[Rfam]
RNA sequence: AUAAAAAAAGACCUGCGGAUAAAAAAUCCGUCAGGUCCAUGGGAUCCUCCUUUAAAAGGGGGAUCCUGAAUGGGAGAGGAGAAACCGGAGGAAGAGCUUAUGGGGAAACGUAAGUCUUCUCCGCGG
Numbered sequence: 001a002u003a004a005a006a007a008a009a010g011a012c013c014u015g016c017g018g019a020u021a022a023a024a025a026a027u028c029c030g031u032c033a034g035g036u037c038c039a040u041g042g043g044a045u046c047c048u049c050c051u052u053u054a055a056a057a058g059g060g061g062g063a064u065c066c067u068g069a070a071u072g073g074g075a076g077a078g079g080a081g082a083a084a085c086c087g088g089a090g091g092a093a094g095a096g097c098u099u100a101u102g103g104g105g106a107a108a109c110g111u112a113a114g115u116c117u118u119c120u121c122c123g124c125g126g
Stems, first nucleotide, its partner, number of pairs: 012035004016030005036074005045063006086123004091119004096115005
RNA: ylbH leader